The record is a 102-nucleotide RNA from Cnuibacter physcomitrellae, which matches "mraW RNA" in Rfam. The family has 45 seed sequences and 851 matches in Rfam 15.1. Taxonomically the source falls in Cnuibacter (Bacteria, Actinomycetota, Micrococcales, Microbacteriaceae).
[Rfam]
RNA sequence: UCUGAUCCGCAUGUCGUGACUCCCAGCUGUUCGACGCCCUGACGCACUUCCCCAGCGCCAGGUCCCGGACGGAUGGGGAUCAGGGCAGGCGGCCGGACCCUA
Numbered sequence: 001u002c003u004g005a006u007c008c009g010c011a012u013g014u015c016g017u018g019a020c021u022c023c024c025a026g027c028u029g030u031u032c033g034a035c036g037c038c039c040u041g042a043c044g045c046a047c048u049u050c051c052c053c054a055g056c057g058c059c060a061g062g063u064c065c066c067g068g069a070c071g072g073a074u075g076g077g078g079a080u081c082a083g084g085g086c087a088g089g090c091g092g093c094c095g096g097a098c099c100c101u102a
Stems, first nucleotide, its partner, number of pairs: 010089001012087004018081002021078005027072007036064001038062004043057003
Dot-bracket structure: .........(.((((..((.(((((.(((((((..(.((((.(((.........))).)))).).))))))).))))).))..)))).).............